[Rfam]
RNA: tRNA
RNA sequence: GCCCGCUUAGUUUAGUGGUAGAACGUCGCACUCGUAAUGCGAGGGGGGCGGUUCAAUUCCGUCAGUGGGCA
Numbered sequence: 001g002c003c004c005g006c007u008u009a010g011u012u013u014a015g016u017g018g019u020a021g022a023a024c025g026u027c028g029c030a031c032u033c034g035u036a037a038u039g040c041g042a043g044g045g046g047g048g049c050g051g052u053u054c055a056a057u058u059c060c061g062u063c064a065g066u067g068g069g070c071a
Stems, first nucleotide, its partner, number of pairs: 001070007010024004026042005047063005